[Rfam]
RNA sequence: AUUGCCCUUCGAAUAACCAGAAGGUGAAACACAAAUCUCACACCAUUUGCUUCAUACUGGGUACACAUUGUUUCAAAGCCUUUUGAUGGUGAUGAACUCCAUUGCUUCAUCCUUGGUUCGUUUUCGAACAUUU
Numbered sequence: 001a002u003u004g005c006c007c008u009u010c011g012a013a014u015a016a017c018c019a020g021a022a023g024g025u026g027a028a029a030c031a032c033a034a035a036u037c038u039c040a041c042a043c044c045a046u047u048u049g050c051u052u053c054a055u056a057c058u059g060g061g062u063a064c065a066c067a068u069u070g071u072u073u074c075a076a077a078g079c080c081u082u083u084u085g086a087u088g089g090u091g092a093u094g095a096a097c098u099c100c101a102u103u104g105c106u107u108c109a110u111c112c113u114u115g116g117u118u119c120g121u122u123u124u125c126g127a128a129c130a131u132u133u
Stems, first nucleotide, its partner, number of pairs: 003063005015052002018049004024043003076133003082109001085108002089105001092102003116129005
RNA: Small nucleolar RNA snoR138
Organism: Pyrus ussuriensis x Pyrus communis